[Rfam]
RNA sequence: AAAUGCACUUAUUGUAAGUCGCUUUGGACAAAAGUGUCUGCUAAAUGUCUGAUC
Numbered sequence: 001a002a003a004u005g006c007a008c009u010u011a012u013u014g015u016a017a018g019u020c021g022c023u024u025u026g027g028a029c030a031a032a033a034g035u036g037u038c039u040g041c042u043a044a045a046u047g048u049c050u051g052a053u054c
Base pairs, nucleotide, nucleotide: 013043014041015040016039020036021035022034023033024032025031
The record is a 54-nucleotide RNA from Muraenolepis orangiensis, which matches "UnaL2 LINE 3' element" in Rfam. The literature on the family includes a 2004 paper in RNA by Baba et al., "Solution structure of an RNA stem-loop derived from the 3' conserved region of eel LINE UnaL2". The source organism's lineage runs through Eukaryota, Metazoa, Vertebrata, Euteleosteomorpha and Muraenolepis. The family's RNA type in Rfam is cis-regulatory element. The eel long interspersed element (LINE) UnaL2 and its partner short interspersed element (SINE) share a conserved 3' tail containing a stem-loop that is critical for their retrotransposition.